The record is a 93-nucleotide sequence from Vibrio navarrensis, which matches "Qrr RNA" in Rfam. On this family, see Tu and Bassler, Genes Dev 2007: "Multiple small RNAs act additively to integrate sensory information and control quorum sensing in Vibrio harveyi". By type it is a small RNA. The family has 30 seed sequences and 148 matches in Rfam 15.1.
RNA sequence: UGACCUUUUAGGUCACCUAGCCAACUGACGUUGUUAGUGAACUUCGUGUUCGCAACUGUAGCCAAUAGUGAAAACGCUGUUGGCUUUUUUUUG
Numbered sequence: 001u002g003a004c005c006u007u008u009u010a011g012g013u014c015a016c017c018u019a020g021c022c023a024a025c026u027g028a029c030g031u032u033g034u035u036a037g038u039g040a041a042c043u044u045c046g047u048g049u050u051c052g053c054a055a056c057u058g059u060a061g062c063c064a065a066u067a068g069u070g071a072a073a074a075c076g077c078u079g080u081u082g083g084c085u086u087u088u089u090u091u092u093g
Stems, first nucleotide, its partner, number of pairs: 001015006031061004037053006062083008